[Rfam]
RNA: Nitrogen stress-induced RNA 1
Organism: Moorena producens
RNA sequence: UAGUAGAUGCACCUUGAUAGCCAUCCCCCUGCAAUCAAAGCGGGGGGUUUUUUAA
Numbered sequence: 001u002a003g004u005a006g007a008u009g010c011a012c013c014u015u016g017a018u019a020g021c022c023a024u025c026c027c028c029c030u031g032c033a034a035u036c037a038a039a040g041c042g043g044g045g046g047g048u049u050u051u052u053u054a055a
Base pairs, nucleotide, nucleotide: 003012004011025047026046027045028044029043030042031041032040